[Rfam]
RNA: Lysine riboswitch aptamer
Organism: Tumebacillus flagellatus
RNA sequence: GAGGUGAGUAGAGGCGCGAAUCGAUCAAGAGUACGUACGAGGAGAGACCGGGAUCUCAUUGAAUCGUGGGGAAAGGGACAUUCGCCGAAGUCGAGGACAUACCGGGUGACCUCAGGCUGGGUCUGCAUCGAACAGGUGCAGGACUGUCACGUGACGAAAUUCACCCGUCGUCACGUGGAGGACUAUCUCACAA
Numbered sequence: 001g002a003g004g005u006g007a008g009u010a011g012a013g014g015c016g017c018g019a020a021u022c023g024a025u026c027a028a029g030a031g032u033a034c035g036u037a038c039g040a041g042g043a044g045a046g047a048c049c050g051g052g053a054u055c056u057c058a059u060u061g062a063a064u065c066g067u068g069g070g071g072a073a074a075g076g077g078a079c080a081u082u083c084g085c086c087g088a089a090g091u092c093g094a095g096g097a098c099a100u101a102c103c104g105g106g107u108g109a110c111c112u113c114a115g116g117c118u119g120g121g122u123c124u125g126c127a128u129c130g131a132a133c134a135g136g137u138g139c140a141g142g143a144c145u146g147u148c149a150c151g152u153g154a155c156g157a158a159a160u161u162c163a164c165c166c167g168u169c170g171u172c173a174c175g176u177g178g179a180g181g182a183c184u185a186u187c188u189c190a191c192a193a
Stems, first nucleotide, its partner, number of pairs: 006188001008186004016085006025078002034070001036068005089118004093113004098108003119145002122142008147178011
Dot-bracket structure: .....(.((((....((((((...((.......(.(((((.......................))))).)......)).))))))...((((((((.(((.....))).)))).))))((.((((((((.....)))))))).)).(((((((((((..........)))))))))))....)))).).....